RNA sequence: GUCUUUGUGAAGAACUCUAGACCAGGAAGUGCCGUAUGACACUCUAAACAGCAGCUGCUUCUCUGCUGCUGCAAGUGCCCAUACAUGUAUCUUAACCUCCGUGGUUUGUUCUGGGGUGGAAAUCCCAUUUGCAGUGGCUUGUUUCAGCUGGUGUGUGAUUUGGAACGGGUCUCUGAAGGC
Numbered sequence: 001g002u003c004u005u006u007g008u009g010a011a012g013a014a015c016u017c018u019a020g021a022c023c024a025g026g027a028a029g030u031g032c033c034g035u036a037u038g039a040c041a042c043u044c045u046a047a048a049c050a051g052c053a054g055c056u057g058c059u060u061c062u063c064u065g066c067u068g069c070u071g072c073a074a075g076u077g078c079c080c081a082u083a084c085a086u087g088u089a090u091c092u093u094a095a096c097c098u099c100c101g102u103g104g105u106u107u108g109u110u111c112u113g114g115g116g117u118g119g120a121a122a123u124c125c126c127a128u129u130u131g132c133a134g135u136g137g138c139u140u141g142u143u144u145c146a147g148c149u150g151g152u153g154u155g156u157g158a159u160u161u162g163g164a165a166c167g168g169g170u171c172u173c174u175g176a177a178g179g180c
Stems, first nucleotide, its partner, number of pairs: 003179003069134009079119004084114001089110001091108001094106004
About this RNA: Shown here is a 180-nucleotide RNA sequence from Aegilops tauschii, a member of the family "Small nucleolar RNA Z112". The match comes from Rfam's covariance-model search (125 bits). Rfam 15.1 lists 427 matches to the family in 103 species. The family's consensus secondary structure was predicted with PFOLD. Taxonomically the source falls in Aegilops tauschii (Eukaryota, Embryophyta, Pooideae, Triticodae). On this family, see Liang et al., Nucleic Acids Res 2002: "A novel gene organization: intronic snoRNA gene clusters from Oryza sativa".